RNA sequence: GAGUCAAAGGAUGAAUUUGGAUUAGAAUAUCUCACGACGGUCGUCUGAGGCACGCAUCUGUGCCGCUUUGAUGUAUUAAUCCUAUCUUCUGAUGAAC
Number, nucleotide and partner (000 for none) at each position: 001g097002a000003g000004u094005c000006a000007a000008a000009g000010g000011a000012u000013g000014a000015a000016u000017u000018u000019g000020g000021a000022u000023u000024a000025g000026a000027a000028u000029a000030u000031c000032u000033c000034a000035c000036g000037a000038c000039g000040g000041u000042c000043g000044u000045c000046u000047g000048a000049g000050g000051c062052a061053c060054g000055c000056a000057u000058c000059u000060g053061u052062g051063c000064c000065g000066c000067u000068u000069u000070g000071a000072u000073g000074u000075a000076u000077u000078a000079a000080u000081c000082c000083u000084a000085u000086c000087u000088u000089c000090u000091g000092a000093u000094g004095a000096a000097c001
Rfam assigns this 97-nucleotide sequence from Sesamum indicum to the family "Small nucleolar RNA Z161/Z228".
The base pairs follow the family's consensus structure, which was predicted with PFOLD.
A reference for the family is Chen et al. (2003), "The high diversity of snoRNAs in plants: identification and comparative study of 120 snoRNA genes from Oryza sativa", Nucleic Acids Res.
Rfam links the family to the GO terms nucleolus and RNA processing.
Lineage of the source: Eukaryota > Streptophyta > Streptophytina > Magnoliopsida > Sesamum.
The match comes from Rfam's covariance-model search (59 bits).